[Rfam]
RNA sequence: AACCACGCUAUCAAUGAAUGGAUUCACCUGUGAGAUGAGAUGAUUGUUCCAUCUAGGAUGAGGACGUGGCAUCCUAUUAAUUUCGUGCGAUUGCUGGUAAUAGGAUGCCAUGUCCUUGUCCUAGGUGAAACUGUCAUGUCAUCUCGCAGGUGAAUUCAUUCAUUGAAACUACACUA
Numbered sequence: 001a002a003c004c005a006c007g008c009u010a011u012c013a014a015u016g017a018a019u020g021g022a023u024u025c026a027c028c029u030g031u032g033a034g035a036u037g038a039g040a041u042g043a044u045u046g047u048u049c050c051a052u053c054u055a056g057g058a059u060g061a062g063g064a065c066g067u068g069g070c071a072u073c074c075u076a077u078u079a080a081u082u083u084c085g086u087g088c089g090a091u092u093g094c095u096g097g098u099a100a101u102a103g104g105a106u107g108c109c110a111u112g113u114c115c116u117u118g119u120c121c122u123a124g125g126u127g128a129a130a131c132u133g134u135c136a137u138g139u140c141a142u143c144u145c146g147c148a149g150g151u152g153a154a155u156u157c158a159u160u161c162a163u164u165g166a167a168a169c170u171a172c173a174c175u176a
Stems, first nucleotide, its partner, number of pairs: 002175001007170001009168001011166005017160003021156008030147004035142004041136004046131003051126002054123002057120002063114003069108011086097001
A member of the RNA family "MIR807 microRNA precursor family" from Oryza sativa, 176 nucleotides long. The family's consensus secondary structure was predicted with WAR. Taxonomically the source falls in Oryza sativa (Eukaryota, Streptophytina, commelinids, Poales).